[Rfam]
RNA sequence: CAUAACCACAAGGGGCGUCGUUUAAGCGACUGAGAUUGUACCCUUCGAACCUGUAAGUUAAUGCUUGCGUAGGGAUGUGGAUGGAAACUGAC
Numbered sequence: 001c002a003u004a005a006c007c008a009c010a011a012g013g014g015g016c017g018u019c020g021u022u023u024a025a026g027c028g029a030c031u032g033a034g035a036u037u038g039u040a041c042c043c044u045u046c047g048a049a050c051c052u053g054u055a056a057g058u059u060a061a062u063g064c065u066u067g068c069g070u071a072g073g074g075a076u077g078u079g080g081a082u083g084g085a086a087a088c089u090g091a092c
Base pairs, nucleotide, nucleotide: 006080007079008078009077010076011044012043013042014041016038017030018029019028020027021026050073051072052071053070054067055066056065057064
TPP riboswitch aptamer (THI element): a 92-nucleotide sequence from Psychrobacillus insolitus. Rfam describes the family as follows. Vitamin B(1) in its active form thiamin pyrophosphate (TPP) is an essential coenzyme that is synthesised by coupling of pyrimidine and thiazole moieties in bacteria. The previously detected thiamin-regulatory element, thi box was extended, resulting in a new, highly conserved RNA secondary structure, the THI element, which is widely distributed in eubacteria and also occurs in some archaea. Analysis of operon structures identified a large number of new candidate thiamin-regulated genes, mostly transporters, in various prokaryotic organisms. Taxonomically the source falls in Psychrobacillus (Bacteria, Bacillati, Caryophanales, Bacillaceae). Pairs were carried over by alignment from the consensus structure, which is taken from published work.